[Rfam]
RNA: Eukaryotic large subunit ribosomal RNA, nucleotides 423 to 683
Organism: Puccinia sorghi
RNA sequence: CAAUUGAAGUUAGACUUGUUAUUAUUAGUUCAACCUUUUUGGAGUAUUCUAAUGAUUAACAGACCAACAUCAAUUUUUGAGUGUUGGAGAAGGGUUUAAGGAAAUGUAGCAGUCUCUGACUGUGUUAUAGUCCUGAGCUUUGAUACAAUGCUUAAGAUUGAGGAAGGCAGUAAGCGCAUGUUGUGUGUGUGGAACAAACUAAUGUUCUUCUUACUGAGGAUGUUGGUGUAAUAGCUUUAAAUGACCCGUCUUGAAACACGG
Numbered sequence: 001c002a003a004u005u006g007a008a009g010u011u012a013g014a015c016u017u018g019u020u021a022u023u024a025u026u027a028g029u030u031c032a033a034c035c036u037u038u039u040u041g042g043a044g045u046a047u048u049c050u051a052a053u054g055a056u057u058a059a060c061a062g063a064c065c066a067a068c069a070u071c072a073a074u075u076u077u078u079g080a081g082u083g084u085u086g087g088a089g090a091a092g093g094g095u096u097u098a099a100g101g102a103a104a105u106g107u108a109g110c111a112g113u114c115u116c117u118g119a120c121u122g123u124g125u126u127a128u129a130g131u132c133c134u135g136a137g138c139u140u141u142g143a144u145a146c147a148a149u150g151c152u153u154a155a156g157a158u159u160g161a162g163g164a165a166g167g168c169a170g171u172a173a174g175c176g177c178a179u180g181u182u183g184u185g186u187g188u189g190u191g192g193a194a195c196a197a198a199c200u201a202a203u204g205u206u207c208u209u210c211u212u213a214c215u216g217a218g219g220a221u222g223u224u225g226g227u228g229u230a231a232u233a234g235c236u237u238u239a240a241a242u243g244a245c246c247c248g249u250c251u252u253g254a255a256a257c258a259c260g261g
Stems, first nucleotide, its partner, number of pairs: 001243002004240009017061005023055001065225007246261004